[Rfam]
RNA sequence: GAAGCAGGCCAGACAGUCGCUGGCUGGCGUGUAAUGCGUCGGCGGGAGGAAGGUCCGGACUCCAUAGAGCAGGAUGACGGUUAACGGCCGUCCGCCGAAAGCCUACCCAGGCGCAAGCCUGGGCGGGUAUAAGGCGAGGAAUAGGGCCACAGAGACGAGCGUAUUAAGUUACGGUGAAACGCGGUAACCUCCAUCUGGAGCAAUCCCAAAUAGGCACGCGUUGAGGCGGCUCGCGGAGCGUGCGGGUAGGGAGCUUGAGCGCAGGAGUAAUUCUGCGCCUAGAGGAAUGGCUGUCAUAGCCGAUGUUCGCAAGGGCAUUGGCCGUAACAAAAUCCGGCCUAUCGGCCUGCUUCACUU
Dot-bracket structure: ((((((((((((((((((.((.((((((.........)))))).))....[[[.[[[[[((((...[[[[.((((((((((.....)))))(((((....................................)))).)((...(((((...........((((......)))).........)))..)))))))))))))...((((......((((((......((.]]]]))...)))))).....))))......((((((((....))))))))..........))))))).....................................]]]]]]]].).))))))))))....
The record is a 357-nucleotide RNA sequence, which matches "Bacterial RNase P class A" in Rfam.
Rfam classes the family as a ribozyme.